[Rfam]
RNA sequence: AUGCCUUAAAGUAAUGAGAAAUGAAAAUAACCUACCCAGGAGAUCUUUGGUAGCUGGUAUUACACCAGGAGCAUUUCUGAAGGAGCACAGGUCGCUUCUGGGUGACCCGCUAACUUAGUGGGAUGUCUUGAGUAGUGAUCUGCACC
Numbered sequence: 001a002u003g004c005c006u007u008a009a010a011g012u013a014a015u016g017a018g019a020a021a022u023g024a025a026a027a028u029a030a031c032c033u034a035c036c037c038a039g040g041a042g043a044u045c046u047u048u049g050g051u052a053g054c055u056g057g058u059a060u061u062a063c064a065c066c067a068g069g070a071g072c073a074u075u076u077c078u079g080a081a082g083g084a085g086c087a088c089a090g091g092u093c094g095c096u097u098c099u100g101g102g103u104g105a106c107c108c109g110c111u112a113a114c115u116u117a118g119u120g121g122g123a124u125g126u127c128u129u130g131a132g133u134a135g136u137g138a139u140c141u142g143c144a145c146c
Stems, first nucleotide, its partner, number of pairs: 004023001006021002032053005038047002054068005082146002085143002089141007098130001100128005106122005
U12 minor spliceosomal RNA: a 146-nucleotide RNA sequence from Lottia gigantea. By type it is a spliceosomal small nuclear RNA. On this family, see Tarn and Steitz, Trends Biochem Sci 1997: "Pre-mRNA splicing: the discovery of a new spliceosome doubles the challenge". The organism belongs to Lottia, within Eukaryota. Pairs were carried over by alignment from the consensus structure.